Shown here is a 266-nucleotide RNA from Actibacterium atlanticum, a member of the family "Ruegeria trans44 sRNA". Rfam classes the family as a small RNA.
RNA sequence: CAUCGCGAUGCUCUUCAAUCAAGGAGAGAUCGUGAUGAGGAUACUAUCGAAACGCCAGCUGAAGGAGUUGGUCCUGUACUCGCCGCAGCAUAUUGCACGUCUGGAAAAGGCCGACUUAUUCCCCAAACGGGUACAGCUUGGCCCUAACAGAGUGGGAUGGGUUGAAGACGAAGUGCUGGAGUGGCUCAAGCGUCGGCUGGAAGACCGCAAGUGACCUGAACGACGCUCCUCUUUGGGAGCACGUGGCGGCUGGAGGUGCACACUUC
Numbered sequence: 001c002a003u004c005g006c007g008a009u010g011c012u013c014u015u016c017a018a019u020c021a022a023g024g025a026g027a028g029a030u031c032g033u034g035a036u037g038a039g040g041a042u043a044c045u046a047u048c049g050a051a052a053c054g055c056c057a058g059c060u061g062a063a064g065g066a067g068u069u070g071g072u073c074c075u076g077u078a079c080u081c082g083c084c085g086c087a088g089c090a091u092a093u094u095g096c097a098c099g100u101c102u103g104g105a106a107a108a109g110g111c112c113g114a115c116u117u118a119u120u121c122c123c124c125a126a127a128c129g130g131g132u133a134c135a136g137c138u139u140g141g142c143c144c145u146a147a148c149a150g151a152g153u154g155g156g157a158u159g160g161g162u163u164g165a166a167g168a169c170g171a172a173g174u175g176c177u178g179g180a181g182u183g184g185c186u187c188a189a190g191c192g193u194c195g196g197c198u199g200g201a202a203g204a205c206c207g208c209a210a211g212u213g214a215c216c217u218g219a220a221c222g223a224c225g226c227u228c229c230u231c232u233u234u235g236g237g238a239g240c241a242c243g244u245g246g247c248g249g250c251u252g253g254a255g256g257u258g259c260a261c262a263c264u265u266c
Stems, first nucleotide, its partner, number of pairs: 001037009012027005055200006065187006072180003077175004081170002083167001086164004091159004096154003101150003109143003113138001115136001121131003203251001205249004220244003226239005253265003
Overview
A reference for the family is Rivers et al. (2016), "Experimental Identification of Small Non-Coding RNAs in the Model Marine Bacterium Ruegeria pomeroyi DSS-3", Front Microbiol. Taxonomically the source falls in Actibacterium (Bacteria, Pseudomonadota, Alphaproteobacteria, Rhodobacterales). Pairs were carried over by alignment from the consensus structure, which was predicted with RNAfold. The family has 2 seed sequences and 33 matches in Rfam 15.1. It scores 222 bits against the family's covariance model.